mir-320 microRNA precursor family: a 76-nucleotide RNA sequence from Prolemur simus. Gene Ontology terms of the family: negative regulation of gene expression, miRNA-mediated post-transcriptional gene silencing and positive regulation of stem cell proliferation. NCBI's taxonomy places the organism under Eukaryota, Tetrapoda, Eutheria, Lemuridae, Prolemur.

[Rfam]
RNA sequence: UAUAAAUUUGGCCUUCUCUUCCCGGUUCUUCCUGGAGUUGGGAAAAGCUGGGUUGAGAGGGCAAAAAAAAAAAGAA
Numbered sequence: 001u002a003u004a005a006a007u008u009u010g011g012c013c014u015u016c017u018c019u020u021c022c023c024g025g026u027u028c029u030u031c032c033u034g035g036a037g038u039u040g041g042g043a044a045a046a047g048c049u050g051g052g053u054u055g056a057g058a059g060g061g062c063a064a065a066a067a068a069a070a071a072a073a074g075a076a
Base pairs, nucleotide, nucleotide: 014059015058016057017056018055021052022051023050024049025048029044030043031042032041033040034039
For this family Rfam cites "Many novel mammalian microRNA candidates identified by extensive cloning and RAKE analysis" (Berezikov et al., Genome Res, 2006). The family's consensus secondary structure was predicted with RNAalifold. A search with the family's covariance model found it, with a score of 92 bits.